[Rfam]
Record summary:
ALIL pseudoknot: a 127-nucleotide RNA from Lutibaculum baratangense. Taxonomically the source falls in Lutibaculum baratangense (Bacteria, Pseudomonadati, Hyphomicrobiales, Tepidamorphaceae). It is annotated as a cis-regulatory element.
RNA sequence: GGCGUAUUUUGCGACGGCGGAGCUCGACCGCCCAUUCAAACGAUGACGGCGUUCAUCGACGUUCAUCGACGAUCAUCGUGAUGUCUAUGGGGUCGAGCCGAUCUGCCGGGUCCUGUAGAUCGCCCCG
Numbered sequence: 001g002g003c004g005u006a007u008u009u010u011g012c013g014a015c016g017g018c019g020g021a022g023c024u025c026g027a028c029c030g031c032c033c034a035u036u037c038a039a040a041c042g043a044u045g046a047c048g049g050c051g052u053u054c055a056u057c058g059a060c061g062u063u064c065a066u067c068g069a070c071g072a073u074c075a076u077c078g079u080g081a082u083g084u085c086u087a088u089g090g091g092g093u094c095g096a097g098c099c100g101a102u103c104u105g106c107c108g109g110g111u112c113c114u115g116u117a118g119a120u121c122g123c124c125c126c127g
Stems, first nucleotide, its partner, number of pairs: 016032005088127005099122002102119005108113001

A search with the family's covariance model found it, with a score of 97 bits. The base pairs follow the family's consensus structure, which is taken from published work.